[Rfam]
Shown here is an 82-nucleotide sequence from Clunio marinus, a member of the family "mir-927 microRNA precursor family". The family's consensus secondary structure was predicted with RNAalifold. The source organism's lineage runs through Eukaryota, Metazoa, Ecdysozoa, Chironomidae and Clunio.
RNA sequence: UAAAUUCGGUUUGUUUUAGAAUUCCUACGCUUUACCUUAAACAAACUAUGGCAAAGCGUUUGGAUUCUGAAACGAAAAGAAU
Number, nucleotide and partner (000 for none) at each position: 001u000002a000003a000004a000005u000006u000007c000008g000009g000010u076011u075012u074013g073014u072015u071016u070017u069018a068019g067020a066021a000022u064023u063024c062025c000026u000027a059028c058029g057030c056031u055032u054033u053034a000035c051036c050037u000038u000039a000040a000041a000042c000043a000044a000045a000046c000047u000048a000049u000050g036051g035052c000053a033054a032055a031056g030057c029058g028059u027060u000061u000062g024063g023064a022065u000066u020067c019068u018069g017070a016071a015072a014073c013074g012075a011076a010077a000078a000079g000080a000081a000082u000

Background:
The literature on the family includes a 2007 paper in Genome Res by Stark et al., "Systematic discovery and characterization of fly microRNAs using 12 Drosophila genomes". Rfam links the family to the GO terms miRNA-mediated post-transcriptional gene silencing and RISC complex.